[Rfam]
The record is a 96-nucleotide sequence from Colwellia sp. MT41, which matches "Group II catalytic intron D1-D4-1" in Rfam. On this family, see Bonen and Vogel, Trends Genet 2001: "The ins and outs of group II introns".
RNA sequence: CGCAUGAUUAGGUAACUAGGCAUGUGAUUAAACAGAAGUCAGCAGACGGUAUAGUAGCCAAAUGCCCAUCGUAAUGGUUGGGACAAGGUGAAGGCC
Numbered sequence: 001c002g003c004a005u006g007a008u009u010a011g012g013u014a015a016c017u018a019g020g021c022a023u024g025u026g027a028u029u030a031a032a033c034a035g036a037a038g039u040c041a042g043c044a045g046a047c048g049g050u051a052u053a054g055u056a057g058c059c060a061a062a063u064g065c066c067c068a069u070c071g072u073a074a075u076g077g078u079u080g081g082g083a084c085a086a087g088g089u090g091a092a093g094g095c096c
Stems, first nucleotide, its partner, number of pairs: 001026002004023003008019004038047003048096003057089003066081003
Annotation: The source organism's lineage runs through Bacteria, Pseudomonadota, Gammaproteobacteria, Alteromonadales and Colwellia. The pairing is the family consensus, mapped onto this sequence.